Rfam assigns this 132-nucleotide RNA sequence from Cuscuta campestris to the family "Small nucleolar RNA snoR77". The family's consensus secondary structure was predicted with WAR. A reference for the family is Marker et al. (2002), "Experimental RNomics: identification of 140 candidates for small non-messenger RNAs in the plant Arabidopsis thaliana", Curr Biol.

[Rfam]
RNA sequence: AGGCAACCUCUUUGCGAAAAUAGAAACUGUAAAGGAAGGUGUUUAUCUGCUCGUAGAUCAAUUGUUCUUUUGCUCUUCAGACUUGCUGAGAUUUCUGGUCUUUGAAGCUGGUCUAGUAGGCAUCAGUACAUU
Dot-bracket structure: .((((.((((((((((...........))))))))..)))))).......................((...(((....(((((.(((..(((.....))).....))).)))))....)))...))......